[Rfam]
RNA sequence: UGGGACCUUCGGGGCCCUUCACUUCAGGCACCCUGCAAGGGGCGCCGCCAAGCAAACGGAAGACAGAAA
Numbered sequence: 001u002g003g004g005a006c007c008u009u010c011g012g013g014g015c016c017c018u019u020c021a022c023u024u025c026a027g028g029c030a031c032c033c034u035g036c037a038a039g040g041g042g043c044g045c046c047g048c049c050a051a052g053c054a055a056a057c058g059g060a061a062g063a064c065a066g067a068a069a
Base pairs, nucleotide, nucleotide: 002017003016004015006014007013008012027046028045029044031042032041033040

This 69-nucleotide RNA sequence belongs to the Rfam family "L2-Alphaproteobacteria ribosomal protein leader".
It is one of the family's seed sequences.